miR-430 microRNA precursor family: a 68-nucleotide sequence from Triplophysa tibetana.
The family's consensus secondary structure was predicted with RNAalifold.
The literature on the family includes a 2005 paper in Science by Giraldez et al., "MicroRNAs regulate brain morphogenesis in zebrafish".
Taxonomically the source falls in Triplophysa (Eukaryota, Neopterygii, Teleostei, Osteoglossocephalai).
RNA sequence: AAGAUUACUUCAAAUAGUAGCAUUAAUUGGUAAAAUAUUCAUAAGUGCUUCUCUUUGGGGUAAUUUUA
Numbered sequence: 001a002a003g004a005u006u007a008c009u010u011c012a013a014a015u016a017g018u019a020g021c022a023u024u025a026a027u028u029g030g031u032a033a034a035a036u037a038u039u040c041a042u043a044a045g046u047g048c049u050u051c052u053c054u055u056u057g058g059g060g061u062a063a064u065u066u067u068a
Stems, first nucleotide, its partner, number of pairs: 004064008014055001016052002019049006026042001028041001